RNA sequence: UAUUAAGAGCAUAGGGUGAAUGCCUAGGCACCAGAAGGCGAAGAAGGACGUGGUAAGCUGCGAUAAGCUGCGGUUAGGCGCAAACAGCCAUUGACCCGCAGAUUUCCGAAUGGGGGAACCCACCUGAGGUAAAUGCUCAGGUACUAUUGCAUGAAUCCAUAGUGCAAUAGGGCGAUACGUGGGGAACUGAAACAUCUAAGUACCCACAGGAAAAGAAAUCAACAGAGAUUCCGUGAGUAGUGGCGAGCGAAAGCGGAGGAGCCCAAACCAUACUAGCUUGCUAGUAUGGGGUUGUGGACUGGCAUAAUGAUUCUCGGAGCUUAGCAGAAUCAGGCUGGAAAGCCUGGACCAUAGAGGGUAAAAGUCCCGUAUGCGAAAAGUGAAGAGACAGGCCAGAAUCCAGAGUACCACGAGGCACGUGAAACCUUGUGGGAAGCAGGGAGGACCACCUUCCAAGGCUAAAUACUAACUGGUGACCGAUAGUGGAGCAGUACCGUGAGGGAAAGGUGAAAAGAACCCCGGGAGGGGAGUGAAAGAGAACCUGAAACCCUAUGUUUACAAG
Numbered sequence: 001u002a003u004u005a006a007g008a009g010c011a012u013a014g015g016g017u018g019a020a021u022g023c024c025u026a027g028g029c030a031c032c033a034g035a036a037g038g039c040g041a042a043g044a045a046g047g048a049c050g051u052g053g054u055a056a057g058c059u060g061c062g063a064u065a066a067g068c069u070g071c072g073g074u075u076a077g078g079c080g081c082a083a084a085c086a087g088c089c090a091u092u093g094a095c096c097c098g099c100a101g102a103u104u105u106c107c108g109a110a111u112g113g114g115g116g117a118a119c120c121c122a123c124c125u126g127a128g129g130u131a132a133a134u135g136c137u138c139a140g141g142u143a144c145u146a147u148u149g150c151a152u153g154a155a156u157c158c159a160u161a162g163u164g165c166a167a168u169a170g171g172g173c174g175a176u177a178c179g180u181g182g183g184g185a186a187c188u189g190a191a192a193c194a195u196c197u198a199a200g201u202a203c204c205c206a207c208a209g210g211a212a213a214a215g216a217a218a219u220c221a222a223c224a225g226a227g228a229u230u231c232c233g234u235g236a237g238u239a240g241u242g243g244c245g246a247g248c249g250a251a252a253g254c255g256g257a258g259g260a261g262c263c264c265a266a267a268c269c270a271u272a273c274u275a276g277c278u279u280g281c282u283a284g285u286a287u288g289g290g291g292u293u294g295u296g297g298a299c300u301g302g303c304a305u306a307a308u309g310a311u312u313c314u315c316g317g318a319g320c321u322u323a324g325c326a327g328a329a330u331c332a333g334g335c336u337g338g339a340a341a342g343c344c345u346g347g348a349c350c351a352u353a354g355a356g357g358g359u360a361a362a363a364g365u366c367c368c369g370u371a372u373g374c375g376a377a378a379a380g381u382g383a384a385g386a387g388a389c390a391g392g393c394c395a396g397a398a399u400c401c402a403g404a405g406u407a408c409c410a411c412g413a414g415g416c417a418c419g420u421g422a423a424a425c426c427u428u429g430u431g432g433g434a435a436g437c438a439g440g441g442a443g444g445a446c447c448a449c450c451u452u453c454c455a456a457g458g459c460u461a462a463a464u465a466c467u468a469a470c471u472g473g474u475g476a477c478c479g480a481u482a483g484u485g486g487a488g489c490a491g492u493a494c495c496g497u498g499a500g501g502g503a504a505a506g507g508u509g510a511a512a513a514g515a516a517c518c519c520c521g522g523g524a525g526g527g528g529a530g531u532g533a534a535a536g537a538g539a540a541c542c543u544g545a546a547a548c549c550c551u552a553u554g555u556u557u558a559c560a561a562g
Stems, first nucleotide, its partner, number of pairs: 007557010022542001023507002027478002029475006036467002038173002046107003049062003068101006077089003112121003122142007144170009178209001179207005189196002219226002229463001230257005240248002260460004268289007295402003299396005313387003319381004324374003330347001332345004350354001356368003408432008439454005494501002517528004
A member of the RNA family "Bacterial large subunit ribosomal RNA" from Acetivibrio saccincola, 562 nucleotides of a longer RNA. The base pairs follow the family's consensus structure, which is taken from published work.